Background: A member of the RNA family "ZMP/ZTP riboswitch aptamer (pfl RNA motif)", 115 nucleotides long. The family's consensus secondary structure is taken from published work.

[Rfam]
RNA sequence: CAGAUUCCCUGCAACUGACGGACACAGGUGGAGCGCAAACCACCGGGGAGCAGGGAGUUCCGUAAUCAGAUGCACCGUGAAGUGUAUCUCAAUGCCGACCGUCUGGGCAGUGUCG
Numbered sequence: 001c002a003g004a005u006u007c008c009c010u011g012c013a014a015c016u017g018a019c020g021g022a023c024a025c026a027g028g029u030g031g032a033g034c035g036c037a038a039a040c041c042a043c044c045g046g047g048g049a050g051c052a053g054g055g056a057g058u059u060c061c062g063u064a065a066u067c068a069g070a071u072g073c074a075c076c077g078u079g080a081a082g083u084g085u086a087u088c089u090c091a092a093u094g095c096c097g098a099c100c101g102u103c104u105g106g107g108c109a110g111u112g113u114c115g
Stems, first nucleotide, its partner, number of pairs: 003059010015047002017103005028043004093109004